A member of the RNA family "Glycine riboswitch aptamer" from Halobacillus halophilus, 87 nucleotides long. A search with the family's covariance model found it, with a score of 69 bits. The source organism's lineage runs through Bacteria, Bacillati, Bacilli, Halobacillus and Halobacillus halophilus. The pairing is the family consensus, mapped onto this sequence. Gene Ontology term of the family: glycine biosynthetic process.
RNA sequence: AUGACUGCAGGGGGAGAGUCUACUUACGUAGCGCCGAAGGAGCAAGCAUGCUGUGAAUCUCUCAGGCAAACAGACCUCUGUAGGACG
Numbered sequence: 001a002u003g004a005c006u007g008c009a010g011g012g013g014g015a016g017a018g019u020c021u022a023c024u025u026a027c028g029u030a031g032c033g034c035c036g037a038a039g040g041a042g043c044a045a046g047c048a049u050g051c052u053g054u055g056a057a058u059c060u061c062u063c064a065g066g067c068a069a070a071c072a073g074a075c076c077u078c079u080g081u082a083g084g085a086c087g
Stems, first nucleotide, its partner, number of pairs: 006082008020031004033067003036063002040061003046054002